[Rfam]
RNA sequence: GCCAGAUGUGUAAACAUCCUACACUCUCAGCUGUGAUAUCACAAAGCUGGGAGAGGGGUGUUUACGCUUUUUGC
Number, nucleotide and partner (000 for none) at each position: 001g000002c073003c000004a071005g070006a069007u000008g067009u066010g065011u064012a063013a062014a061015c060016a059017u058018c057019c056020u055021a000022c000023a000024c053025u052026c051027u050028c049029a048030g047031c046032u045033g000034u000035g000036a000037u000038a000039u000040c000041a000042c000043a000044a000045a032046g031047c030048u029049g028050g027051g026052a025053g024054a000055g020056g019057g018058g017059u016060g015061u014062u013063u012064a011065c010066g009067c008068u000069u006070u005071u004072u000073g002074c000